[Rfam]
RNA sequence: AGUCCCGCCAGCUAUCGCGUGGAGUGUACCCACUCUGUCUCCGCGACGAUCGUUCUACCGGGGCGAGAAGC
Numbered sequence: 001a002g003u004c005c006c007g008c009c010a011g012c013u014a015u016c017g018c019g020u021g022g023a024g025u026g027u028a029c030c031c032a033c034u035c036u037g038u039c040u041c042c043g044c045g046a047c048g049a050u051c052g053u054u055c056u057a058c059c060g061g062g063g064c065g066a067g068a069a070g071c
Base pairs, nucleotide, nucleotide: 002064003063004062005061006060007059014050015049016048018045019044020043021042022041023040024039
RNA: Trypanosomatid snoRNA TB9Cs4H2
Organism: Trypanosoma vivax